[Rfam]
RNA sequence: GCUGGGCAUGGUGGCGUGUGCCUCUAAUCCAAGUCACUGGGAGGCUGAGGUUGGUGGUUCGAAUGAGCGGAGGAUCUCUGCACUGUAGUGCGCUAUGUCGAACGGGUGUCCAUGCUAAGUUCGGUAUCGAUAUGGUGGUUCUAGGGGAGCUUUGGACCACCAGGUCAUCUAAGGAGGGGUGUACCGGCCCAGGUCGGAAACGGAGCAGGUCAAAGCCCCCGUGCCGUCCAGUAGCGGGAUCGCGUCCGUGAAUAGAUGGUACAGUGCAGCCUCGGCAAUACAGCGGUACCCAAUCUUUU
Numbered sequence: 001g002c003u004g005g006g007c008a009u010g011g012u013g014g015c016g017u018g019u020g021c022c023u024c025u026a027a028u029c030c031a032a033g034u035c036a037c038u039g040g041g042a043g044g045c046u047g048a049g050g051u052u053g054g055u056g057g058u059u060c061g062a063a064u065g066a067g068c069g070g071a072g073g074a075u076c077u078c079u080g081c082a083c084u085g086u087a088g089u090g091c092g093c094u095a096u097g098u099c100g101a102a103c104g105g106g107u108g109u110c111c112a113u114g115c116u117a118a119g120u121u122c123g124g125u126a127u128c129g130a131u132a133u134g135g136u137g138g139u140u141c142u143a144g145g146g147g148a149g150c151u152u153u154g155g156a157c158c159a160c161c162a163g164g165u166c167a168u169c170u171a172a173g174g175a176g177g178g179g180u181g182u183a184c185c186g187g188c189c190c191a192g193g194u195c196g197g198a199a200a201c202g203g204a205g206c207a208g209g210u211c212a213a214a215g216c217c218c219c220c221g222u223g224c225c226g227u228c229c230a231g232u233a234g235c236g237g238g239a240u241c242g243c244g245u246c247c248g249u250g251a252a253u254a255g256a257u258g259g260u261a262c263a264g265u266g267c268a269g270c271c272u273c274g275g276c277a278a279u280a281c282a283g284c285g286g287u288a289c290c291c292a293a294u295c296u297u298u299u
Base pairs, nucleotide, nucleotide: 001045002044003043004023005022006021007020008019009018010017028042029041030040047297048296049295050294051293052292053291054290059286060285061284067276068275070273071272072271073270078269079268080267081266082265083264084263085262086261087260089258090257093255094254095253096252098250102249103248104247105246106245107244108243109242110238111237113236114235115234116233117232119229122226123225124224125223126222127221129166130165131164133162134161135160136159137158138157139156140155141154143152144151145150168174169173176219177218178217179216180215186211187210188209189208194203195202196201

Metazoan signal recognition particle RNA: a 299-nucleotide sequence from Muraenolepis orangiensis. Rfam links the family to the GO terms SRP-dependent cotranslational protein targeting to membrane, signal sequence recognition and signal recognition particle, endoplasmic reticulum targeting. For this family Rfam cites "Prediction of signal recognition particle RNA genes" (Regalia et al., Nucleic Acids Res, 2002). The family is grouped with related families in Rfam's "SRP clan". Lineage of the source: Eukaryota > Teleostomi > Neopterygii > Muraenolepidoidei > Muraenolepis. From the family's description: The signal recognition particle (SRP) is a universally conserved ribonucleoprotein. It is involved in the co-translational targeting of proteins to membranes. The eukaryotic SRP consists of a 300-nucleotide 7S RNA and six proteins: SRPs 72, 68, 54, 19, 14, and 9. Archaeal SRP consists of a 7S RNA and homologues of the eukaryotic SRP19 and SRP54 proteins. Eukaryotic and archaeal 7S RNAs have very similar secondary structures, as represented by this family. Eight helical elements fold into the Alu and S domains, separated by a long linker region. The Alu domain is thought to mediate the peptide chain elongation retardation function of the SRP. The universally conserved helix which interacts with the SRP54 M domain mediates signal sequence recognition. In eukaryotes and archaea, the SRP19-helix 6 complex is thought to be involved in SRP assembly and stabilises helix 8 for SRP54 binding. The Signal Recognition Particle Database (SRPDB) provides compilations of SRP components, with phylogenetic data and structural illustrations. Many sequences below the threshold for this family are clearly closely related, but are most likely to be SRP RNA derived pseudogenes. The human genome in particular is known to contain a large amount of SRP RNA related sequence, including Alu repeats. While the threshold of this family is set high so as to minimise the number of hits to such regions, it is likely that some remain. It is annotated as a non-coding RNA gene.